[Rfam]
RNA: U1 spliceosomal RNA
Organism: Carlito syrichta
RNA sequence: AUACUUACCUGGCAGGGGAGGUAUCAUGAUCAUGAAUGUGGUUUUCCCAGGUCAAGGCUUAUAUCCACCUCACUACAGAUGUGCUGAUCCCUGUGAUUUUCCUACAUGUGGGAAACUCGAGUGCAUAAUUUGUGGUAAUGGGGUACUGUGUUCUUGUUCUCCCUUG
Numbered sequence: 001a002u003a004c005u006u007a008c009c010u011g012g013c014a015g016g017g018g019a020g021g022u023a024u025c026a027u028g029a030u031c032a033u034g035a036a037u038g039u040g041g042u043u044u045u046c047c048c049a050g051g052u053c054a055a056g057g058c059u060u061a062u063a064u065c066c067a068c069c070u071c072a073c074u075a076c077a078g079a080u081g082u083g084c085u086g087a088u089c090c091c092u093g094u095g096a097u098u099u100u101c102c103u104a105c106a107u108g109u110g111g112g113a114a115a116c117u118c119g120a121g122u123g124c125a126u127a128a129u130u131u132g133u134g135g136u137a138a139u140g141g142g143g144u145a146c147u148g149u150g151u152u153c154u155u156g157u158u159c160u161c162c163c164u165u166g
Stems, first nucleotide, its partner, number of pairs: 012124003016048006023042005049092003054088001056085003060081003064077001094119003097115003101111002140164004145160001148157003